The record is a 73-nucleotide RNA sequence, which matches "RT-18 RNA" in Rfam. Pairs were carried over by alignment from the consensus structure, which is taken from published work.
RNA sequence: CGCCCCUUGGCGAAAAUUGCCCGAGACGGCGCGAGUUAGUAGCGAAGGCGAAAGCCCGCGAGGGCGAAGAAAG
Numbered sequence: 001c002g003c004c005c006c007u008u009g010g011c012g013a014a015a016a017u018u019g020c021c022c023g024a025g026a027c028g029g030c031g032c033g034a035g036u037u038a039g040u041a042g043c044g045a046a047g048g049c050g051a052a053a054g055c056c057c058g059c060g061a062g063g064g065c066g067a068a069g070a071a072a073g
Base pairs, nucleotide, nucleotide: 001012002011003010004009019065020064021063022062030060031059032058033057035055036054042049043048